[Rfam]
RNA sequence: CUUCCUGUGCAGGUGGGGAUAGGUAGCAAUGCUGUGUAGCUGGAGGUAUUGCACUUGUCCCGGCCUGUGUUGGAAUG
Numbered sequence: 001c002u003u004c005c006u007g008u009g010c011a012g013g014u015g016g017g018g019a020u021a022g023g024u025a026g027c028a029a030u031g032c033u034g035u036g037u038a039g040c041u042g043g044a045g046g047u048a049u050u051g052c053a054c055u056u057g058u059c060c061c062g063g064c065c066u067g068u069g070u071u072g073g074a075a076u077g
Base pairs, nucleotide, nucleotide: 004073005072009068010067011066012065013064014063016061017060018059019058020057022055023054024053026052027051028050029049030048031047032046033045
Shown here is a 77-nucleotide sequence from Cynoglossus semilaevis, a member of the family "mir-92 microRNA precursor family". Its family is annotated with RISC complex and miRNA-mediated post-transcriptional gene silencing in the Gene Ontology. For this family Rfam cites "Embryonic stem cell-specific MicroRNAs" (Houbaviy et al., Dev Cell, 2003). Its Rfam clan is "mir-92 microRNA precursor clan". This family represents the microRNA precursor mir-92. Human miR-92 has two predicted hairpin precursor sequences: mir-92-1 on chromosome 13 and mir-92-2 on chromosome X. miR-92 has also been cloned from mouse embryonic stem cells. The mature sequence is excised from the 3' arm of the hairpin.